This 275-nucleotide RNA from Miscanthus lutarioriparius belongs to the Rfam family "MIR821 microRNA precursor family". It scores 272 bits against the family's covariance model. Its family is annotated with miRNA-mediated post-transcriptional gene silencing and RISC complex in the Gene Ontology.
RNA sequence: GAUUUCAGCUGAAAAAGUCAUGAACAUAAAAGUUGUAGAAUUGAUCAAGAUCUACAACUUUUAUUUUGGUCAUUUCUUCAUCCGGCAAAGUAAUAGUAAUAUUGUUCACAAAAUUUACAUAUCUCUCUUAUGGUUUAUGAAACCAUAUGAGAGAGAUGUAAAAUUUGUGAACAAUGUUACUAUCCCUUUGUCGGAUGAACAAAUGACCAAAAUAAAAGUUACAGAUCUUGAUAACUUCUACAACUUUGUUGUUGAUAACUUUUUCAGUUGACAUC
Number, nucleotide and partner (000 for none) at each position: 001g000002a000003u000004u000005u000006c000007a000008g000009c000010u000011g000012a000013a000014a262015a261016a260017g259018u258019c000020a256021u255022g000023a253024a252025c000026a250027u000028a000029a000030a246031a245032g244033u243034u242035g241036u240037a239038g238039a237040a236041u000042u234043g000044a232045u231046c230047a229048a228049g227050a226051u225052c224053u223054a000055c000056a220057a219058c218059u217060u216061u215062u214063a213064u212065u211066u210067u209068g000069g207070u206071c205072a204073u203074u202075u201076c000077u199078u198079c197080a196081u195082c000083c193084g192085g191086c190087a189088a188089a187090g186091u000092a000093a000094u182095a181096g180097u179098a178099a177100u000101a175102u174103u173104g172105u171106u170107c169108a168109c167110a166111a165112a164113a000114u162115u161116u000117a159118c158119a157120u156121a000122u154123c000124u000125c000126u000127c000128u000129u000130a000131u145132g144133g143134u142135u141136u140137a000138u000139g000140a136141a135142a134143c133144c132145a131146u000147a000148u000149g000150a000151g000152a000153g000154a122155g000156a120157u119158g118159u117160a000161a115162a114163a000164u112165u111166u110167g109168u108169g107170a106171a105172c104173a103174a102175u101176g000177u099178u098179a097180c096181u095182a094183u000184c000185c000186c090187u089188u088189u087190g086191u085192c084193g083194g000195a081196u080197g079198a078199a077200c000201a075202a074203a073204u072205g071206a070207c069208c000209a067210a066211a065212a064213u063214a062215a061216a060217a059218g058219u057220u056221a000222c000223a053224g052225a051226u050227c049228u048229u047230g046231a045232u044233a000234a042235c000236u040237u039238c038239u037240a036241c035242a034243a033244c032245u031246u030247u000248g000249u000250u026251g000252u024253u023254g000255a021256u020257a000258a018259c017260u016261u015262u014263u000264u000265c000266a000267g000268u000269u000270g000271a000272c000273a000274u000275c000